This 90-nucleotide RNA sequence from Caenorhabditis elegans belongs to the Rfam family "mir-77 microRNA precursor family". The organism belongs to Caenorhabditis, within Eukaryota. Rfam's curators put it in the seed alignment.
RNA sequence: AAACCGCCCGUUUGGAUGGUUGUGCUCUGAGGAAAUACGCACAGAAUGUCAUUUCAUCAGGCCAUAGCUGUCCAAAUUGGUAUAGAGUUU
Numbered sequence: 001a002a003a004c005c006g007c008c009c010g011u012u013u014g015g016a017u018g019g020u021u022g023u024g025c026u027c028u029g030a031g032g033a034a035a036u037a038c039g040c041a042c043a044g045a046a047u048g049u050c051a052u053u054u055c056a057u058c059a060g061g062c063c064a065u066a067g068c069u070g071u072c073c074a075a076a077u078u079g080g081u082a083u084a085g086a087g088u089u090u
Stems, first nucleotide, its partner, number of pairs: 008080003011076014026061005032055005